[Rfam]
RNA sequence: CCACGGCUUUAGGGGUAUUCUGAAAAGAAUUGAGAGAGUCCCUUUGAACCUGAUCCGGUUAACACCGGCGUAGGGAAAAGUUUAGCUUCUUUU
Numbered sequence: 001c002c003a004c005g006g007c008u009u010u011a012g013g014g015g016u017a018u019u020c021u022g023a024a025a026a027g028a029a030u031u032g033a034g035a036g037a038g039u040c041c042c043u044u045u046g047a048a049c050c051u052g053a054u055c056c057g058g059u060u061a062a063c064a065c066c067g068g069c070g071u072a073g074g075g076a077a078a079a080g081u082u083u084a085g086c087u088u089c090u091u092u093u
Base pairs, nucleotide, nucleotide: 006081007080008079009078010077011043012042013041014040016037017030018029019028020027021026049074050073051072052071055068056067057066058065

Rfam assigns this 93-nucleotide sequence from Flavobacterium supellecticarium to the family "TPP riboswitch aptamer (THI element)". A search with the family's covariance model found it, with a score of 76 bits. A reference for the family is Serganov et al. (2006), "Structural basis for gene regulation by a thiamine pyrophosphate-sensing riboswitch", Nature. The family's consensus secondary structure is taken from published work. Its family is annotated with thiamine pyrophosphate binding in the Gene Ontology.